Source information
This 321-nucleotide RNA sequence from Fusarium flagelliforme belongs to the Rfam family "Nuclear RNase P". Rfam classes the family as a ribozyme. It scores 78 bits against the family's covariance model. The literature on the family includes a 2005 paper in RNA by Marquez et al., "Structural implications of novel diversity in eucaryal RNase P RNA".
RNA sequence: GCCCUCCCCAACGCUGCGUUUCCAUGCUACAAACAGAGAGAUUCCCAGAAUCUCUCACCUAUUCUUUACGCAUGUGGGAAAUUCGGAGUAAGCCUCAACCUCACCACCGCCUGCUAUUUAGCGGGAUCGGUCUGGUCUGCCGGUAACGGUCUGGCGUCAAUGUACGUCUGCAAACGACAUCAGAAAUCUCAGAGCUGCUGCUUGAACAGUUGUCUCUAUGGGAAGUCUUUGCGAGGCUCGUUUUGGGAAAAACUGAAGUGCGAUACGCGGCGUUCGGUCCUUUGGACCGGAUGACUCAAUUCCGAUCACUCUGGGGAGGGC
Numbered sequence: 001g002c003c004c005u006c007c008c009c010a011a012c013g014c015u016g017c018g019u020u021u022c023c024a025u026g027c028u029a030c031a032a033a034c035a036g037a038g039a040g041a042u043u044c045c046c047a048g049a050a051u052c053u054c055u056c057a058c059c060u061a062u063u064c065u066u067u068a069c070g071c072a073u074g075u076g077g078g079a080a081a082u083u084c085g086g087a088g089u090a091a092g093c094c095u096c097a098a099c100c101u102c103a104c105c106a107c108c109g110c111c112u113g114c115u116a117u118u119u120a121g122c123g124g125g126a127u128c129g130g131u132c133u134g135g136u137c138u139g140c141c142g143g144u145a146a147c148g149g150u151c152u153g154g155c156g157u158c159a160a161u162g163u164a165c166g167u168c169u170g171c172a173a174a175c176g177a178c179a180u181c182a183g184a185a186a187u188c189u190c191a192g193a194g195c196u197g198c199u200g201c202u203u204g205a206a207c208a209g210u211u212g213u214c215u216c217u218a219u220g221g222g223a224a225g226u227c228u229u230u231g232c233g234a235g236g237c238u239c240g241u242u243u244u245g246g247g248a249a250a251a252a253c254u255g256a257a258g259u260g261c262g263a264u265a266c267g268c269g270g271c272g273u274u275c276g277g278u279c280c281u282u283u284g285g286a287c288c289g290g291a292u293g294a295c296u297c298a299a300u301u302c303c304g305a306u307c308a309c310u311c312u313g314g315g316g317a318g319g320g321c
Stems, first nucleotide, its partner, number of pairs: 001321004008314003013271007023074004036056008084304005093236004139150004153168005170232005176227002191217003272292007